[Rfam]
RNA: Small Cajal body specific RNA 3
RNA sequence: ACUGGAAGCUGCUGGGACCAGUCGUGGGCAAAAGAAAUAUGUUUUGUCCACCAUUGCAGUCUUCCUAGAGCAAAGUGGAGGUCUCUGUCUGCUUUAGGAGAGCCAACUAAACUGGAUCGUUCCCCUCCGUGCAUG
Number, nucleotide and partner (000 for none) at each position: 001a000002c000003u000004g065005g064006a063007a000008g060009c059010u058011g057012c056013u000014g000015g000016g000017a000018c000019c000020a000021g000022u000023c000024g051025u050026g049027g048028g047029c046030a000031a000032a000033a000034g043035a042036a000037a000038u000039a000040u000041g000042u035043u034044u000045u000046g029047u028048c027049c026050a025051c024052c000053a000054u000055u000056g012057c011058a010059g009060u008061c000062u000063u006064c005065c004066u000067a000068g000069a000070g000071c000072a000073a000074a000075g000076u000077g128078g127079a126080g125081g124082u000083c000084u000085c119086u000087g117088u116089c115090u000091g113092c000093u111094u110095u109096a108097g107098g000099a000100g000101a000102g000103c000104c000105a000106a000107c097108u096109a095110a094111a093112c000113u091114g000115g089116a088117u087118c000119g085120u000121u000122c000123c000124c081125c080126u079127c078128c077129g000130u000131g000132c000133a000134u000135g000